[Rfam]
RNA sequence: GUUCAUCUUCGGGGCUGGGUGAAAUUCCCGACCGGCGGUAAUAAGGGUGUAUCCUUUAAGCCCGCGAGUCUAAUUUUUAGACAGGAUUUGGUGAGAUUCCAAAGCCGACAGUAUAGUCUGGAUGGGAGAAGAUGGAG
Numbered sequence: 001g002u003u004c005a006u007c008u009u010c011g012g013g014g015c016u017g018g019g020u021g022a023a024a025u026u027c028c029c030g031a032c033c034g035g036c037g038g039u040a041a042u043a044a045g046g047g048u049g050u051a052u053c054c055u056u057u058a059a060g061c062c063c064g065c066g067a068g069u070c071u072a073a074u075u076u077u078u079a080g081a082c083a084g085g086a087u088u089u090g091g092u093g094a095g096a097u098u099c100c101a102a103a104g105c106c107g108a109c110a111g112u113a114u115a116g117u118c119u120g121g122a123u124g125g126g127a128g129a130a131g132a133u134g135g136a137g
Stems, first nucleotide, its partner, number of pairs: 003135008017029003031117002033107002035065004060105002068082003087103005109120003